[Rfam]
RNA sequence: AAGAGCGUAAAUGCACUAUGUUGCUAAUUAUGUAUAUAACGAAAUUAGCAGCAAGGCGCAUUUGCGUGCCA
Numbered sequence: 001a002a003g004a005g006c007g008u009a010a011a012u013g014c015a016c017u018a019u020g021u022u023g024c025u026a027a028u029u030a031u032g033u034a035u036a037u038a039a040c041g042a043a044a045u046u047a048g049c050a051g052c053a054a055g056g057c058g059c060a061u062u063u064g065c066g067u068g069c070c071a
Base pairs, nucleotide, nucleotide: 003069006066007065008064009063010062011061012060013059014058016056017055019053020052021051022050023049024048025047026046027045028044029043
RNA: mir-5366 microRNA precursor family